[Rfam]
RNA sequence: CCGGUUCCGGUUUACGAUUUGGCCGACCCGUCGACCCGCCGGGUCGACCCGGAACC
Dot-bracket structure: ..(((.((((....(((((((((..............)))))))))..)))).)))
Numbered sequence: 001c002c003g004g005u006u007c008c009g010g011u012u013u014a015c016g017a018u019u020u021g022g023c024c025g026a027c028c029c030g031u032c033g034a035c036c037c038g039c040c041g042g043g044u045c046g047a048c049c050c051g052g053a054a055c056c
Stems, first nucleotide, its partner, number of pairs: 003056003007052004015046009